[Rfam]
RNA sequence: GACAGAGGUAGCCCCGCUAGGAACGCGACGUCCUGUCGCACGCGGGACGCAUAUAUCCUAUAUG
Numbered sequence: 001g002a003c004a005g006a007g008g009u010a011g012c013c014c015c016g017c018u019a020g021g022a023a024c025g026c027g028a029c030g031u032c033c034u035g036u037c038g039c040a041c042g043c044g045g046g047a048c049g050c051a052u053a054u055a056u057c058c059u060a061u062a063u064g
Base pairs, nucleotide, nucleotide: 011048013046014045015044016043017042025039026038027037028036029035050064051063052062053061054060

A member of the RNA family "Bacillaceae-1 RNA" from Tumebacillus algifaecis, 64 nucleotides long. Rfam classes the family as a small RNA. A search with the family's covariance model found it, with a score of 40 bits. Pairs were carried over by alignment from the consensus structure, which is taken from published work.